[Rfam]
RNA sequence: UGGAUAUAUUUCUACUCUUGAUUAAAGUUUUGUAAGAAACAAUACAGGAUUUGGGGUGGGGGAUGGGGAGGGAGGA
Numbered sequence: 001u002g003g004a005u006a007u008a009u010u011u012c013u014a015c016u017c018u019u020g021a022u023u024a025a026a027g028u029u030u031u032g033u034a035a036g037a038a039a040c041a042a043u044a045c046a047g048g049a050u051u052u053g054g055g056g057u058g059g060g061g062g063a064u065g066g067g068g069a070g071g072g073a074g075g076a
Stems, first nucleotide, its partner, number of pairs: 007071001009069006016062004021057003025052010
RNA: mir-1892 microRNA precursor family